[Rfam]
RNA sequence: UCCCCGCUUCUCCUCCCUGAGCGGGUGCCUGUCGUUUUUCGAUUAGGCUGUUUAACCCGCCGUUGAACGGCGGGUUUUUUUAU
Dot-bracket structure: ..((((((...........)))))).((((.(((.....)))..))))......((((((((.....))))))))........
RNA: Burkholderia RNA 7 (anti-hemB)